Annotation: Shown here is a 120-nucleotide RNA sequence from Castor canadensis, a member of the family "Small nucleolar RNA SNORA32". Rfam's curators write: ACA32 is a member of the H/ACA class of snoRNA that guide the sites of modification of uridines to pseudouridines. The source organism's lineage runs through Eukaryota, Metazoa, Eumetazoa, Theria and Castor. It is annotated as an H/ACA-box small nucleolar RNA.
RNA sequence: UGGUCAUUAUCAAGGCUUUUAGAAUGCAUUUUCUCAUUUACUGUGAACAUAACAAUAAAAAAUUUCCCACCAGGUUUUCUAUAAGCUACUUUGUUAGCAGUCAACCUGUUGGGAAUGAUA
Numbered sequence: 001u002g003g004u005c006a007u008u009a010u011c012a013a014g015g016c017u018u019u020u021a022g023a024a025u026g027c028a029u030u031u032u033c034u035c036a037u038u039u040a041c042u043g044u045g046a047a048c049a050u051a052a053c054a055a056u057a058a059a060a061a062a063u064u065u066c067c068c069a070c071c072a073g074g075u076u077u078u079c080u081a082u083a084a085g086c087u088a089c090u091u092u093g094u095u096a097g098c099a100g101u102c103a104a105c106c107u108g109u110u111g112g113g114a115a116u117g118a119u120a
Stems, first nucleotide, its partner, number of pairs: 003053002006050002010046003026041001028039001066113004073106004085098002

Annotation:
The match comes from Rfam's covariance-model search (110 bits). Its family is annotated with RNA processing and nucleolus in the Gene Ontology.